[Rfam]
RNA sequence: GUCCUCAAUAAAAAGCAGUUAUGAAAACAAUUACUAACAAUACAUGGUGGUGGAGCAAUUUACGUCGAUAGUCGUGAACAAAGCUUCCUAUGGUAUAAUUAGUACACUAUAAAUUUAAAAGGCUUGUC
Numbered sequence: 001g002u003c004c005u006c007a008a009u010a011a012a013a014a015g016c017a018g019u020u021a022u023g024a025a026a027a028c029a030a031u032u033a034c035u036a037a038c039a040a041u042a043c044a045u046g047g048u049g050g051u052g053g054a055g056c057a058a059u060u061u062a063c064g065u066c067g068a069u070a071g072u073c074g075u076g077a078a079c080a081a082a083g084c085u086u087c088c089u090a091u092g093g094u095a096u097a098a099u100u101a102g103u104a105c106a107c108u109a110u111a112a113a114u115u116u117a118a119a120a121g122g123c124u125u126g127u128c
Stems, first nucleotide, its partner, number of pairs: 036100002040096003043092005049087002052084001059080001061078001062072002

Background
This 128-nucleotide sequence from Flavobacterium agrisoli belongs to the Rfam family "Bacteroidete tryptophan peptide leader RNA". The source organism's lineage runs through Bacteria, Pseudomonadati, Bacteroidota, Flavobacteriales and Flavobacterium. The family's consensus secondary structure is taken from published work. Gene Ontology terms of the family: regulation of gene expression and S-adenosylmethionine metabolic process.